[Rfam]
RNA sequence: UGCAGAUGAUGUGAAAGAAUAUUUGCUAUCUGAGUGAUGGUGGGGACGUCCUUAACCACCGAGAUCGCUGAUGCA
Numbered sequence: 001u002g003c004a005g006a007u008g009a010u011g012u013g014a015a016a017g018a019a020u021a022u023u024u025g026c027u028a029u030c031u032g033a034g035u036g037a038u039g040g041u042g043g044g045g046a047c048g049u050c051c052u053u054a055a056c057c058a059c060c061g062a063g064a065u066c067g068c069u070g071a072u073g074c075a
Stems, first nucleotide, its partner, number of pairs: 001075004
Dot-bracket structure: ((((...................................................................))))
The record is a 75-nucleotide RNA from Rhinolophus ferrumequinum, which matches "Small nucleolar RNA SNORD24" in Rfam. A search with the family's covariance model found it, with a score of 77 bits. The family's consensus secondary structure was predicted with PFOLD.